RNA sequence: CGCGUUUUUCGCCCAGGCGGAGCUCGACCGCCGAUUCAAGUCCUGAGGUCUUUCGUCGACGCGCAUCGUGAUGCCUUCGGGGUCGAGCCGAUCUGCAAGCAAUUGCAGAUCGCCCCA
Numbered sequence: 001c002g003c004g005u006u007u008u009u010c011g012c013c014c015a016g017g018c019g020g021a022g023c024u025c026g027a028c029c030g031c032c033g034a035u036u037c038a039a040g041u042c043c044u045g046a047g048g049u050c051u052u053u054c055g056u057c058g059a060c061g062c063g064c065a066u067c068g069u070g071a072u073g074c075c076u077u078c079g080g081g082g083u084c085g086a087g088c089c090g091a092u093c094u095g096c097a098a099g100c101a102a103u104u105g106c107a108g109a110u111c112g113c114c115c116c117a
Stems, first nucleotide, its partner, number of pairs: 016032005079116004089112002092109007
RNA: ALIL pseudoknot